[Rfam]
RNA sequence: CUGACGCUUUCUUUGGUUAUCUAGCUGUAUGAACGUUUGAUAUCAUAAAGCUAGGUUACCGAAGUUAUUAUCAG
Numbered sequence: 001c002u003g004a005c006g007c008u009u010u011c012u013u014u015g016g017u018u019a020u021c022u023a024g025c026u027g028u029a030u031g032a033a034c035g036u037u038u039g040a041u042a043u044c045a046u047a048a049a050g051c052u053a054g055g056u057u058a059c060c061g062a063a064g065u066u067a068u069u070a071u072c073a074g
Stems, first nucleotide, its partner, number of pairs: 001074004008067001011064007019056008028047005
The family of this 74-nucleotide RNA sequence from Laodelphax striatellus is "mir-9/mir-79 microRNA precursor family". The match comes from Rfam's covariance-model search (65 bits). On this family, see Sempere et al., Dev Biol 2003: "Temporal regulation of microRNA expression in Drosophila melanogaster mediated by hormonal signals and broad-Complex gene activity". Rfam links the family to the GO terms RISC complex and miRNA-mediated post-transcriptional gene silencing.